[Rfam]
This 58-nucleotide RNA sequence belongs to the Rfam family "RAGATH-30 RNA".
Rfam classes the family as a small RNA.
Rfam's curators put it in the seed alignment.
RNA sequence: GUGAAAAUAAGAAAUUAUCGAACAAAUUCGUUUAGACGAGAGCUGCUAGUAGUAGUUA
Numbered sequence: 001g002u003g004a005a006a007a008u009a010a011g012a013a014a015u016u017a018u019c020g021a022a023c024a025a026a027u028u029c030g031u032u033u034a035g036a037c038g039a040g041a042g043c044u045g046c047u048a049g050u051a052g053u054a055g056u057u058a
Stems, first nucleotide, its partner, number of pairs: 027040005042056006